[Rfam]
RNA sequence: UUGACCUAAAACAACGAAAGCCCUGCCUCUCUUUCAUCAAUACGGUUCCUUGACCGCGCCUUUAAGAAUUAGGAUUUCAAAAGUUCA
Numbered sequence: 001u002u003g004a005c006c007u008a009a010a011a012c013a014a015c016g017a018a019a020g021c022c023c024u025g026c027c028u029c030u031c032u033u034u035c036a037u038c039a040a041u042a043c044g045g046u047u048c049c050u051u052g053a054c055c056g057c058g059c060c061u062u063u064a065a066g067a068a069u070u071a072g073g074a075u076u077u078c079a080a081a082a083g084u085u086c087a
Stems, first nucleotide, its partner, number of pairs: 034067002039062002041058001043056005
RNA: BsrC
Organism: Robertmurraya siralis